[Rfam]
RNA sequence: CUCUUAUCAAGAGCGGCAGAGGGAAUAGGCCCUGUGAAGCCCGGCAACCAGCAAGUUUCUUGAAAAGGUGCCAAAUCCUACAGGUAACAUACCUGAUAGAUAAGGG
Numbered sequence: 001c002u003c004u005u006a007u008c009a010a011g012a013g014c015g016g017c018a019g020a021g022g023g024a025a026u027a028g029g030c031c032c033u034g035u036g037a038a039g040c041c042c043g044g045c046a047a048c049c050a051g052c053a054a055g056u057u058u059c060u061u062g063a064a065a066a067g068g069u070g071c072c073a074a075a076u077c078c079u080a081c082a083g084g085u086a087a088c089a090u091a092c093c094u095g096a097u098a099g100a101u102a103a104g105g106g
Stems, first nucleotide, its partner, number of pairs: 001106008013042001015041003021032003026080004043072004048068002052062002076098001081095006
The record is a 106-nucleotide RNA from Paraliobacillus ryukyuensis, which matches "SAM riboswitch aptamer (S box leader)" in Rfam.
The SAM riboswitch is found upstream of a number of genes which code for proteins involved in methionine or cysteine biosynthesis in Gram-positive bacteria. The SAM riboswitch acts at the level of transcription termination control. The predicted structure consists of a complex stem-loop region followed by a single stem loop terminator region. An alternative and mutually exclusive form involves bases in the 3' segment of helix 1 with those in the 5' region of helix 5 to form a structure termed the anti-terminator form.
Pairs were carried over by alignment from the consensus structure, which is taken from published work.